[Rfam]
RNA: MIR4359 microRNA precursor family
Organism: Glycine max
RNA sequence: AUGUUAACAUAGCAUACGUUAACAUCGGUUUUCCAAAAAACCGAUGUUAACGUGUAUGCAUUAACAU
Numbered sequence: 001a002u003g004u005u006a007a008c009a010u011a012g013c014a015u016a017c018g019u020u021a022a023c024a025u026c027g028g029u030u031u032u033c034c035a036a037a038a039a040a041c042c043g044a045u046g047u048u049a050a051c052g053u054g055u056a057u058g059c060a061u062u063a064a065c066a067u
Stems, first nucleotide, its partner, number of pairs: 001067007010058002014055019